[Rfam]
Description: tRNA: a 72-nucleotide RNA sequence from Alicyclobacillaceae bacterium I2511. It is annotated as a transfer RNA. Transfer RNA (tRNA) molecules are approximately 80 nucleotides in length. The source organism's lineage runs through Bacteria, Bacillota, Bacilli, Caryophanales and Alicyclobacillaceae. The match comes from Rfam's covariance-model search (67 bits).
RNA sequence: GGGGAAUUAGCUCAGCGGGAGAGCACCGCGCUGGCAGCGCGGGGGUCAGGGGUUCAAAUCCCCUAUUCUCCA
Numbered sequence: 001g002g003g004g005a006a007u008u009a010g011c012u013c014a015g016c017g018g019g020a021g022a023g024c025a026c027c028g029c030g031c032u033g034g035c036a037g038c039g040c041g042g043g044g045g046u047c048a049g050g051g052g053u054u055c056a057a058a059u060c061c062c063c064u065a066u067u068c069u070c071c072a
Base pairs, nucleotide, nucleotide: 001071002070003069004068005067006066007065010024011023012022013021026042027041028040029039030038048064049063050062051061052060